RNA sequence: CCGAUACAUCAGGAGCGGUUUCAGAUAAGAAACCCGCCAACCGACCCAAGUGGGCACGGUGGUUUGAUCCUUAAACGGUAGAUGUGCCUCUUAUGAGGAAUCUUAAAGCCGCCUGA
Numbered sequence: 001c002c003g004a005u006a007c008a009u010c011a012g013g014a015g016c017g018g019u020u021u022c023a024g025a026u027a028a029g030a031a032a033c034c035c036g037c038c039a040a041c042c043g044a045c046c047c048a049a050g051u052g053g054g055c056a057c058g059g060u061g062g063u064u065u066g067a068u069c070c071u072u073a074a075a076c077g078g079u080a081g082a083u084g085u086g087c088c089u090c091u092u093a094u095g096a097g098g099a100a101u102c103u104u105a106a107a108g109c110c111g112c113c114u115g116a
Stems, first nucleotide, its partner, number of pairs: 006085005015035001017034005036063003041059003045054002050109002087098004
RNA: SAM-I/IV (S-adenosyl methionine) riboswitch aptamer